[Rfam]
RNA sequence: UGAUGAGGUAGAGGUUGCGGUGGCGAUCAGUACACCGGCAGAGGCGCAGCAGAGCGCCAAAGAAGCCGGCCUGGAAAGGCGCACCCGCCGAAGCGCGGAUUUCUCUGACCUGAAUCCCGCGUUGGGCCCGUCUCCGACAAGGAACGGAACUGUCAUCCGCCGCAGGGCGGAUGUUGAGCUAUCUUCACG
Numbered sequence: 001u002g003a004u005g006a007g008g009u010a011g012a013g014g015u016u017g018c019g020g021u022g023g024c025g026a027u028c029a030g031u032a033c034a035c036c037g038g039c040a041g042a043g044g045c046g047c048a049g050c051a052g053a054g055c056g057c058c059a060a061a062g063a064a065g066c067c068g069g070c071c072u073g074g075a076a077a078g079g080c081g082c083a084c085c086c087g088c089c090g091a092a093g094c095g096c097g098g099a100u101u102u103c104u105c106u107g108a109c110c111u112g113a114a115u116c117c118c119g120c121g122u123u124g125g126g127c128c129c130g131u132c133u134c135c136g137a138c139a140a141g142g143a144a145c146g147g148a149a150c151u152g153u154c155a156u157c158c159g160c161c162g163c164a165g166g167g168c169g170g171a172u173g174u175u176g177a178g179c180u181a182u183c184u185u186c187a188c189g
Stems, first nucleotide, its partner, number of pairs: 006184006017088004023082003033073002035069005092123007101114003124151002128147004133142002154173006
Lysine riboswitch aptamer: a 189-nucleotide RNA from Saccharibacillus brassicae. Pairs were carried over by alignment from the consensus structure, which is taken from published work. Rfam links the family to the GO term lysine biosynthetic process. A reference for the family is Mandal et al. (2003), "Riboswitches Control Fundamental Biochemical Pathways in Bacillus subtilis and Other Bacteria", Cell.